[Rfam]
RNA sequence: CCACAAGUUCAAGGCCAUAGCAGAAGUACUCAUGGCAUGGCGGCCUAUCAGAUUCCAAUGAAAUCUGCAAAUUCUGCU
Numbered sequence: 001c002c003a004c005a006a007g008u009u010c011a012a013g014g015c016c017a018u019a020g021c022a023g024a025a026g027u028a029c030u031c032a033u034g035g036c037a038u039g040g041c042g043g044c045c046u047a048u049c050a051g052a053u054u055c056c057a058a059u060g061a062a063a064u065c066u067g068c069a070a071a072u073u074c075u076g077c078u
Stems, first nucleotide, its partner, number of pairs: 013045001014041003019078007026038002049067006
Dot-bracket structure: ............[[[[..(((((((((.........))]]]...]...((((((.......))))))....)))))))
RNA: Mammalian CPEB3 ribozyme